This 222-nucleotide RNA sequence from Bacillus mesophilum belongs to the Rfam family "Lysine riboswitch aptamer".
RNA sequence: CGAUGGGGUAGAGGUGCAAUAUUCAUUAGUAAGCUGUUUGAGGAUGACAACAAAGAGAGCAGCUGAAAGGGAAUGCUGCCGAAGUGGAUAGCUGAUGUCAGCGGCUAUUUCGCUGGGGUUACCUUUAAGAGAGGUAACACUGUCAUUGCAAGAUUAGAAGAGUCUUUGCAGUUUUUAUUGCAUUCUUUUCGUUGACCCUUGCAAUGGGGAGCUACAGAUCGU
Numbered sequence: 001c002g003a004u005g006g007g008g009u010a011g012a013g014g015u016g017c018a019a020u021a022u023u024c025a026u027u028a029g030u031a032a033g034c035u036g037u038u039u040g041a042g043g044a045u046g047a048c049a050a051c052a053a054a055g056a057g058a059g060c061a062g063c064u065g066a067a068a069g070g071g072a073a074u075g076c077u078g079c080c081g082a083a084g085u086g087g088a089u090a091g092c093u094g095a096u097g098u099c100a101g102c103g104g105c106u107a108u109u110u111c112g113c114u115g116g117g118g119u120u121a122c123c124u125u126u127a128a129g130a131g132a133g134g135u136a137a138c139a140c141u142g143u144c145a146u147u148g149c150a151a152g153a154u155u156a157g158a159a160g161a162g163u164c165u166u167u168g169c170a171g172u173u174u175u176u177a178u179u180g181c182a183u184u185c186u187u188u189u190c191g192u193u194g195a196c197c198c199u200u201g202c203a204a205u206g207g208g209g210a211g212c213u214a215c216a217g218a219u220c221g222u
Base pairs, nucleotide, nucleotide: 008215009214010213011212016079017078018077020075021074022073023072024071032064033063034062035061036060037059038058039057083114084113085112086111087109088108089107090106091105092104093103094102115141116140118138119137120136121135122134123133124132125131143207144206145205146204147203148202149201150200151199152198

The organism belongs to Bacillus, within Bacteria.